Shown here is a 94-nucleotide RNA from Paenibacillus lycopersici, a member of the family "c-di-GMP-I-GGC riboswitch aptamer". Gene Ontology term of the family: cyclic-di-GMP binding. It scores 65 bits against the family's covariance model. Lineage of the source: Bacteria > Bacillota > Bacilli > Caryophanales > Paenibacillus. Clan: c-di-GMP_I riboswitch clan.
RNA sequence: AUCGAAACUGGCAAACUUGUCGAAAGGCAAGGACGCAAAGCCACAGGGUCUAAGGUUCGUCAAUGACGAAUAACUGAUAGCCUGGCUGCCGAAA
Numbered sequence: 001a002u003c004g005a006a007a008c009u010g011g012c013a014a015a016c017u018u019g020u021c022g023a024a025a026g027g028c029a030a031g032g033a034c035g036c037a038a039a040g041c042c043a044c045a046g047g048g049u050c051u052a053a054g055g056u057u058c059g060u061c062a063a064u065g066a067c068g069a070a071u072a073a074c075u076g077a078u079a080g081c082c083u084g085g086c087u088g089c090c091g092a093a094a
Stems, first nucleotide, its partner, number of pairs: 003091002011036002016031006034080001039087004045083003048078003
Dot-bracket structure: ..((......((...((((((....))))))..[))..((((..((((((.........................))).])))))))..))...